[Rfam]
Shown here is a 185-nucleotide sequence from Halopseudomonas laoshanensis, a member of the family "Pseudomonas sRNA P27". A search with the family's covariance model found it, with a score of 130 bits. A reference for the family is Livny et al. (2006), "Identification of 17 Pseudomonas aeruginosa sRNAs and prediction of sRNA-encoding genes in 10 diverse pathogens using the bioinformatic tool sRNAPredict2", Nucleic Acids Res.
RNA sequence: GGGUUUUACUCCUGGAUUUACCAUUGAUCGCCCGAGGGCGACAUGUUUUGGUGUCUGAUCCAGCCUGCACUGAAUCGGGAGCACCAUCUGCGUAGGCUUCAUGUUUAAGGCUUGCGCCACCUACGGUCUUGGACAGCCCCCGCUACGCAGGGACCCCAAUAAGUGGCGCACCGAAAAACGGUGCG
Numbered sequence: 001g002g003g004u005u006u007u008a009c010u011c012c013u014g015g016a017u018u019u020a021c022c023a024u025u026g027a028u029c030g031c032c033c034g035a036g037g038g039c040g041a042c043a044u045g046u047u048u049u050g051g052u053g054u055c056u057g058a059u060c061c062a063g064c065c066u067g068c069a070c071u072g073a074a075u076c077g078g079g080a081g082c083a084c085c086a087u088c089u090g091c092g093u094a095g096g097c098u099u100c101a102u103g104u105u106u107a108a109g110g111c112u113u114g115c116g117c118c119a120c121c122u123a124c125g126g127u128c129u130u131g132g133a134c135a136g137c138c139c140c141c142g143c144u145a146c147g148c149a150g151g152g153a154c155c156c157c158a159a160u161a162a163g164u165g166g167c168g169c170a171c172c173g174a175a176a177a178a179c180g181g182u183g184c185g
Stems, first nucleotide, its partner, number of pairs: 002156002005153003011147001013145002022045002026042001028041005049086006055078005061072003090143003095138004103134010168184006